ASpks TB sRNA: a 75-nucleotide RNA from Kutzneria kofuensis.
The match comes from Rfam's covariance-model search (76 bits).
On this family, see Arnvig and Young, Mol Microbiol 2009: "Identification of small RNAs in Mycobacterium tuberculosis".
[Rfam]
RNA sequence: CUUGAUCGACCCCAGCCACAGCGGCUUGCCGGGCUCCCGGUCCUGGCCGUAGGUGGUCAGCAGGGCCUGCACCUC
Numbered sequence: 001c002u003u004g005a006u007c008g009a010c011c012c013c014a015g016c017c018a019c020a021g022c023g024g025c026u027u028g029c030c031g032g033g034c035u036c037c038c039g040g041u042c043c044u045g046g047c048c049g050u051a052g053g054u055g056g057u058c059a060g061c062a063g064g065g066c067c068u069g070c071a072c073c074u075c
Base pairs, nucleotide, nucleotide: 014026015025016024017023032070038065043060044059045058047056048055049054